The family of this 46-nucleotide RNA sequence from Kingella kingae is "PreQ1 (pre queuosine) riboswitch aptamer". Taxonomically the source falls in Kingella kingae (Bacteria, Pseudomonadati, Neisseriales, Kingella). The family has 43 seed sequences and 873 matches in Rfam 15.1. A search with the family's covariance model found it, with a score of 47 bits. About the family: This family is a bacterial riboswitch that binds to the metabolite preQ1, an intermediate in the biosynthesis of the modified nucleoside queuosine from GTP. One example of this riboswitch is located in the leader of the Bacillus subtilis ykvJKLM (queCDEF) operon which encodes four genes necessary for queuosine production. PreQ1 binding to the riboswitch aptamer is thought to induce premature transcription termination within the leader to down-regulate expression of these genes. Pairs were carried over by alignment from the consensus structure.

RNA sequence: CCAACCGCGGUUCGUAACCAUCCCGCGAUAACAAAACUAGGAAAAU
Numbered sequence: 001c002c003a004a005c006c007g008c009g010g011u012u013c014g015u016a017a018c019c020a021u022c023c024c025g026c027g028a029u030a031a032c033a034a035a036a037c038u039a040g041g042a043a044a045a046u
Stems, first nucleotide, its partner, number of pairs: 006027005015039002